[Rfam]
RNA sequence: GCCGCGACACCGUCGAAUCCGCCUCAGCGCGGAGCCGGGGACCCCACCAUCUGGGGUGAAUCCGCACCUGACCACACCUGGUCACGCGUGCCGUAGGGCGACUUCCAAGCCCGAACCCGUCAGCUGACCCGGUAGGCGGUAUGGAAGCGAAAG
Numbered sequence: 001g002c003c004g005c006g007a008c009a010c011c012g013u014c015g016a017a018u019c020c021g022c023c024u025c026a027g028c029g030c031g032g033a034g035c036c037g038g039g040g041a042c043c044c045c046a047c048c049a050u051c052u053g054g055g056g057u058g059a060a061u062c063c064g065c066a067c068c069u070g071a072c073c074a075c076a077c078c079u080g081g082u083c084a085c086g087c088g089u090g091c092c093g094u095a096g097g098g099c100g101a102c103u104u105c106c107a108a109g110c111c112c113g114a115a116c117c118c119g120u121c122a123g124c125u126g127a128c129c130c131g132g133u134a135g136g137c138g139g140u141a142u143g144g145a146a147g148c149g150a151a152a153g
Stems, first nucleotide, its partner, number of pairs: 011138004018033005034133006044053001054118003062093001064091004096112004
c-di-AMP riboswitch aptamer (ydaO/yuaA leader): a 153-nucleotide sequence from Streptosporangiaceae bacterium NEAU-GS5. Lineage of the source: Bacteria > Actinomycetota > Actinomycetes > Streptosporangiales > Streptosporangiaceae.